[Rfam]
Rfam assigns this 61-nucleotide sequence from Capsicum baccatum to the family "Plastid-psbN 5UTR RNA". From the family's description: Plastid psbN is a non-coding RNA (ncRNA) recognised in plastids. It was reported as a conserved 11 stem-loop in the prime untranslated region (5UTR) of psbN genes. It has been reported that the motif is retained in a subset of mature transcripts in barley, which can suggests a possible role in transcript alternative 5 prime processing. It is annotated as a cis-regulatory element. The organism belongs to Capsicum, within Eukaryota. A search with the family's covariance model found it, with a score of 72 bits.
Nucleotides: 061
Base pairs, nucleotide, nucleotide: 017045018044019043020042024038025037026036027035
Number, partner (000 for none) and nucleotide at each position: 001000u002000g003000c004000g005000a006000c007000a008000c009000c010000c011000a012000u013000c014000a015000a016000a017045g018044g019043a020042g021000a022000u023000a024038u025037u026036c027035c028000c029000c030000a031000c032000c033000c034000a035027g036026g037025a038024g039000c040000u041000a042020c043019u044018u045017u046000a047000c048000c049000a050000u051000a052000u053000u054000c055000c056000g057000a058000a059000u060000u061000c